[Rfam]
RNA sequence: UGUGCUGAUCAACACAUCGGGAGUGACUGAAUAAACUUACUGGCAUAUAGCUAGUUAAGGUGAUGAGACACAGGUGGUGCUGCACCGAAAGGUGAAUCGACUUACCAGUCGGGUCUCAGGCAGAGAUGUUUUUCUAAACUGUAGAAAUGCCCAUCUCUUGUUGGUAUACAGGAUUCCAACCUCCCCCUUU
Numbered sequence: 001u002g003u004g005c006u007g008a009u010c011a012a013c014a015c016a017u018c019g020g021g022a023g024u025g026a027c028u029g030a031a032u033a034a035a036c037u038u039a040c041u042g043g044c045a046u047a048u049a050g051c052u053a054g055u056u057a058a059g060g061u062g063a064u065g066a067g068a069c070a071c072a073g074g075u076g077g078u079g080c081u082g083c084a085c086c087g088a089a090a091g092g093u094g095a096a097u098c099g100a101c102u103u104a105c106c107a108g109u110c111g112g113g114u115c116u117c118a119g120g121c122a123g124a125g126a127u128g129u130u131u132u133u134c135u136a137a138a139c140u141g142u143a144g145a146a147a148u149g150c151c152c153a154u155c156u157c158u159u160g161u162u163g164g165u166a167u168a169c170a171g172g173a174u175u176c177c178a179a180c181c182u183c184c185c186c187c188u189u190u
Stems, first nucleotide, its partner, number of pairs: 001016004006011001019185005026061002039055006064118006071082003075107004083094004097112005122158007131147004139171004160180005